RNA sequence: UGGCGGGAGAGCACCGCAACGGGAGGAGCGUGCGGUUUAAUUGGAUUCAACGCCGGAAAACUCACUAGGGAAGACCAUGGUAUGAGGGUCAACUUGAAGAAUUUACUCGAUUACAUGGAGAAGUGGUGCAUGGCCGUCGUCAGCUCGUACCGUAAAGCGUUCACUUAAGUGUGAUAACGAGCGAGACCCCCAUCCACUUUUGCCAGUACUGUCGCGAGACAGCACGCACUAUGUGGAGACUGCCAGUGUUAAACUGGAGGAAGGAGAGGUCAACGGCAGGUCAGUAUGCCCCGAAUUCCCUGGGCUACACGCGCGCUACAAAGGACGGAACAAUGGGCUGCAAUUCCGAAAGGAAGAGCCAAUCCCGAAAUCCGUUCGUAGUUCAGACUGAGGACUGUAAUUCGUCCUCACGAAGCUGGAUUCCGUAGUAAUCGCGAUUCAACAAAUCGCGGUGAAUAUGCCCCUGCUCUUUGCACACACCGCCUGUCAAGCCAUCCGAGUUGGUUCUGGAUGAGGGAACAUUUUUUGAUGUUUUCGAAUCCAAGAUUGAUGAGGAGGGCUAAGUCAUAACAAGGUAUCCGUAGGGGAACCUGCGGAUGG
Numbered sequence: 001u002g003g004c005g006g007g008a009g010a011g012c013a014c015c016g017c018a019a020c021g022g023g024a025g026g027a028g029c030g031u032g033c034g035g036u037u038u039a040a041u042u043g044g045a046u047u048c049a050a051c052g053c054c055g056g057a058a059a060a061c062u063c064a065c066u067a068g069g070g071a072a073g074a075c076c077a078u079g080g081u082a083u084g085a086g087g088g089u090c091a092a093c094u095u096g097a098a099g100a101a102u103u104u105a106c107u108c109g110a111u112u113a114c115a116u117g118g119a120g121a122a123g124u125g126g127u128g129c130a131u132g133g134c135c136g137u138c139g140u141c142a143g144c145u146c147g148u149a150c151c152g153u154a155a156a157g158c159g160u161u162c163a164c165u166u167a168a169g170u171g172u173g174a175u176a177a178c179g180a181g182c183g184a185g186a187c188c189c190c191c192a193u194c195c196a197c198u199u200u201u202g203c204c205a206g207u208a209c210u211g212u213c214g215c216g217a218g219a220c221a222g223c224a225c226g227c228a229c230u231a232u233g234u235g236g237a238g239a240c241u242g243c244c245a246g247u248g249u250u251a252a253a254c255u256g257g258a259g260g261a262a263g264g265a266g267a268g269g270u271c272a273a274c275g276g277c278a279g280g281u282c283a284g285u286a287u288g289c290c291c292c293g294a295a296u297u298c299c300c301u302g303g304g305c306u307a308c309a310c311g312c313g314c315g316c317u318a319c320a321a322a323g324g325a326c327g328g329a330a331c332a333a334u335g336g337g338c339u340g341c342a343a344u345u346c347c348g349a350a351a352g353g354a355a356g357a358g359c360c361a362a363u364c365c366c367g368a369a370a371u372c373c374g375u376u377c378g379u380a381g382u383u384c385a386g387a388c389u390g391a392g393g394a395c396u397g398u399a400a401u402u403c404g405u406c407c408u409c410a411c412g413a414a415g416c417u418g419g420a421u422u423c424c425g426u427a428g429u430a431a432u433c434g435c436g437a438u439u440c441a442a443c444a445a446a447u448c449g450c451g452g453u454g455a456a457u458a459u460g461c462c463c464c465u466g467c468u469c470u471u472u473g474c475a476c477a478c479a480c481c482g483c484c485u486g487u488c489a490a491g492c493c494a495u496c497c498g499a500g501u502u503g504g505u506u507c508u509g510g511a512u513g514a515g516g517g518a519a520c521a522u523u524u525u526u527u528g529a530u531g532u533u534u535u536c537g538a539a540u541c542c543a544a545g546a547u548u549g550a551u552g553a554g555g556a557g558g559g560c561u562a563a564g565u566c567a568u569a570a571c572a573a574g575g576u577a578u579c580c581g582u583a584g585g586g587g588a589a590c591c592u593g594c595g596g597a598u599g600g
Stems, first nucleotide, its partner, number of pairs: 001477002003474003007471007016461002020425005025319001027317008035308002041056004065303007075118004080112001087107003091103002123291001125290004131286002133281003136277004143182006150157001161174004188269002191266001193237005199231001203226001207224001209222005240260002243257005323377007335366003340359002344355004384415001389410007431453008480574001482571001485567002488564001490561004495556003500551007508543005515536009576599010
Shown here is a 600-nucleotide part of an RNA from Thermoplasmatales archaeon I-plasma, a member of the family "Archaeal small subunit ribosomal RNA". For this family Rfam cites "Crystal structure of the ribosome at 5.5 A resolution" (Yusupov et al., Science, 2001). Lineage of the source: Archaea > Methanobacteriati > Thermoplasmatota > Thermoplasmata > Thermoplasmatales.